[Rfam]
RNA sequence: CUUCUGCUCUCCCCGCACAGGAGGGCGGAACGAGACCGAUGCGCUCUCUGCCCUGACCGCGCACCGGUCUCCGAUCGCUCCGGGCUGCGGUGCCGGGUGGGUUGAGGGUCCCUCCCAGGCGC
Numbered sequence: 001c002u003u004c005u006g007c008u009c010u011c012c013c014c015g016c017a018c019a020g021g022a023g024g025g026c027g028g029a030a031c032g033a034g035a036c037c038g039a040u041g042c043g044c045u046c047u048c049u050g051c052c053c054u055g056a057c058c059g060c061g062c063a064c065c066g067g068u069c070u071c072c073g074a075u076c077g078c079u080c081c082g083g084g085c086u087g088c089g090g091u092g093c094c095g096g097g098u099g100g101g102u103u104g105a106g107g108g109u110c111c112c113u114c115c116c117a118g119g120c121g122c
Stems, first nucleotide, its partner, number of pairs: 003029004008024005032071005038065001040063002043060002045056002076092004081087002095116003099112003
Dot-bracket structure: ..((((.(((((.......))))).))))..(((((.(.((.((((........))..)).)).).)))))....((((.((...)).))))..(((.(((........))).)))......
This 122-nucleotide RNA sequence from Streptomyces alkaliterrae belongs to the Rfam family "Streptomyces sRNA scr5239". The organism belongs to Streptomyces, within Bacteria. Pairs were carried over by alignment from the consensus structure, which is taken from published work.